[Rfam]
RNA sequence: AAUUAGGGCUUCUAGGGUUCCGGUUUAAAUCCCAGGGUUUAAAUGACUGGUCCGAGAGAAGCAAGCCAGCCUGAGAUUGGUUUCAGUAUCAGCAAUUAAGGUUUGGUUACACGGCGGGAAAAAAGCCCGGGAGGU
Number, nucleotide and partner (000 for none) at each position: 001a000002a000003u000004u000005a000006g000007g000008g062009c061010u060011u059012c058013u000014a000015g053016g052017g000018u000019u000020c050021c049022g047023g044024u043025u042026u041027a040028a039029a038030u037031c000032c000033c000034a000035g000036g000037g030038u029039u028040u027041a026042a025043a024044u023045g000046a000047c022048u000049g021050g020051u000052c016053c015054g000055a000056g000057a000058g012059a011060a010061g009062c008063a000064a108065g107066c106067c105068a104069g103070c000071c101072u000073g000074a000075g000076a000077u000078u000079g000080g000081u000082u000083u000084c000085a000086g000087u000088a000089u000090c000091a000092g000093c000094a000095a000096u000097u000098a000099a000100g000101g071102u000103u069104u068105g067106g066107u065108u064109a000110c130111a000112c133113g000114g000115c000116g128117g127118g126119a000120a000121a000122a000123a000124a000125g000126c118127c117128c116129g000130g110131g000132a000133g112134g000135u000